[Rfam]
RNA sequence: GGGUUCGUGGUCUAGUUGGUUAUGACGCGUCCCUUACAAGGACGAGGGCGGCGGUUCGAAUCCGCCCGAACCCA
Numbered sequence: 001g002g003g004u005u006c007g008u009g010g011u012c013u014a015g016u017u018g019g020u021u022a023u024g025a026c027g028c029g030u031c032c033c034u035u036a037c038a039a040g041g042a043c044g045a046g047g048g049c050g051g052c053g054g055u056u057c058g059a060a061u062c063c064g065c066c067c068g069a070a071c072c073c074a
Stems, first nucleotide, its partner, number of pairs: 001073007010026003028044005050066005
Record summary:
A member of the RNA family "tRNA" from Halanaeroarchaeum sulfurireducens, 74 nucleotides long. The match comes from Rfam's covariance-model search (70 bits). Lineage of the source: Archaea > Methanobacteriati > Halobacteria > Halobacteriales > Halanaeroarchaeum.